RNA sequence: GCUCCCCCUCUCUAAUCCUUGCUAUCUGGGUGCUUAGUGCUAUCUCAAUGCAAUGCACCUGGGCAAGGGUUCAGAGAAGGUGAGC
Numbered sequence: 001g002c003u004c005c006c007c008c009u010c011u012c013u014a015a016u017c018c019u020u021g022c023u024a025u026c027u028g029g030g031u032g033c034u035u036a037g038u039g040c041u042a043u044c045u046c047a048a049u050g051c052a053a054u055g056c057a058c059c060u061g062g063g064c065a066a067g068g069g070u071u072c073a074g075a076g077a078a079g080g081u082g083a084g085c
Base pairs, nucleotide, nucleotide: 014071015070016069017068018067019066020065025063026062027061028060029059030058031057032056038052039051040050
Overview
mir-500 microRNA precursor family: an 85-nucleotide sequence from Mus musculus. Rfam links the family to the GO terms RISC complex and miRNA-mediated post-transcriptional gene silencing. The sequence is in the family's curated seed alignment. On this family, see Strozzi et al., Anim Genet 2009: "Annotation of 390 bovine miRNA genes by sequence similarity with other species".